[Rfam]
RNA sequence: AAAAAGGGCGCGUCACAGAGCAGUAAUGCCGAUGUGUCGGGAGUGGAUGAUUUGCUCCUGCGGUAUGGAUAUCAAGACAUAUCGCGCGCAUAAUUUUUUGCCCAAGGGAAGCUCGCUUACUUUUGGCUUCGCUCAAGCCGGAGCUUCCCA
Numbered sequence: 001a002a003a004a005a006g007g008g009c010g011c012g013u014c015a016c017a018g019a020g021c022a023g024u025a026a027u028g029c030c031g032a033u034g035u036g037u038c039g040g041g042a043g044u045g046g047a048u049g050a051u052u053u054g055c056u057c058c059u060g061c062g063g064u065a066u067g068g069a070u071a072u073c074a075a076g077a078c079a080u081a082u083c084g085c086g087c088g089c090a091u092a093a094u095u096u097u098u099u100g101c102c103c104a105a106g107g108g109a110a111g112c113u114c115g116c117u118u119a120c121u122u123u124u125g126g127c128u129u130c131g132c133u134c135a136a137g138c139c140g141g142a143g144c145u146u147c148c149c150a
Stems, first nucleotide, its partner, number of pairs: 008089005014036004038060010061084007107148008
Dot-bracket structure: .......(((((.((((...............)))).((((((((((...))))))))))(((((((..........)))))))))))).................((((((((..........................))))))))..